[Rfam]
RNA sequence: GGAGGUCGGGUAAGAAGCUGUCGCCCAAAAGGCUAUGGACUUACGAACCUGCUCGACCUUAGUGGGUAUUAAACUUUGACGGUUAAUCAAAACUUAAAAACGCAAAGUCAGGUUCGGUCGUAAGUGAAAGUGGCUUAAUCGUUGACACGAAAGUGAAUCAACGCAAUUUGAGGCUCGCAAGGCUGAUGAUUGUCUAUCAGGAAGUGCACCUAAGUGGAAGCCCCACUGAAUGGCUCGCAAGGUCAAGGGAAACGGGAAGGUAGAGUAGCUUACGAUGACAGAGGAAACGCCACCUCUUUAAACUAGGCAGCCAUGACGGUUAACAAUGAUGCAUCGAAAGAUGGUUGUUGUGGAAAAGUUGGGAAGGGCUCCGCAAGAGCUGAUAAUCCAAACGAAUGAAUCGUCUCGUCAGACUGUAUUCUCAGGUC
Numbered sequence: 001g002g003a004g005g006u007c008g009g010g011u012a013a014g015a016a017g018c019u020g021u022c023g024c025c026c027a028a029a030a031g032g033c034u035a036u037g038g039a040c041u042u043a044c045g046a047a048c049c050u051g052c053u054c055g056a057c058c059u060u061a062g063u064g065g066g067u068a069u070u071a072a073a074c075u076u077u078g079a080c081g082g083u084u085a086a087u088c089a090a091a092a093c094u095u096a097a098a099a100a101c102g103c104a105a106a107g108u109c110a111g112g113u114u115c116g117g118u119c120g121u122a123a124g125u126g127a128a129a130g131u132g133g134c135u136u137a138a139u140c141g142u143u144g145a146c147a148c149g150a151a152a153g154u155g156a157a158u159c160a161a162c163g164c165a166a167u168u169u170g171a172g173g174c175u176c177g178c179a180a181g182g183c184u185g186a187u188g189a190u191u192g193u194c195u196a197u198c199a200g201g202a203a204g205u206g207c208a209c210c211u212a213a214g215u216g217g218a219a220g221c222c223c224c225a226c227u228g229a230a231u232g233g234c235u236c237g238c239a240a241g242g243u244c245a246a247g248g249g250a251a252a253c254g255g256g257a258a259g260g261u262a263g264a265g266u267a268g269c270u271u272a273c274g275a276u277g278a279c280a281g282a283g284g285a286a287a288c289g290c291c292a293c294c295u296c297u298u299u300a301a302a303c304u305a306g307g308c309a310g311c312c313a314u315g316a317c318g319g320u321u322a323a324c325a326a327u328g329a330u331g332c333a334u335c336g337a338a339a340g341a342u343g344g345u346u347g348u349u350g351u352g353g354a355a356a357a358g359u360u361g362g363g364a365a366g367g368g369c370u371c372c373g374c375a376a377g378a379g380c381u382g383a384u385a386a387u388c389c390a391a392a393c394g395a396a397u398g399a400a401u402c403g404u405c406u407c408g409u410c411a412g413a414c415u416g417u418a419u420u421c422u423c424a425g426g427u428c
Base pairs, nucleotide, nucleotide: 002060003059004058005057006056007055008054009053010044011043012042013041014040018038019037020036021035023033024032025031045115046114047113048112049111050110051109102178103177117276118275119274120273121272122271123270124269125268131313132312133311134310135309140163141162142161143160144159145158146155147154148153164192165191166190167189168188172184173183174182175181195262196261197260198259209248210247211246213227214226215225216224231245233244234242235241289308290307291306315405316404317403319401320400321399323351324350325349326348327347328346329345353421354420355419358393359391360390361389362388363387413427414426415425
RNA: Giant, ornate, lake- and Lactobacillales-derived (GOLLD) RNA
Organism: Xanthomonas phage BUDD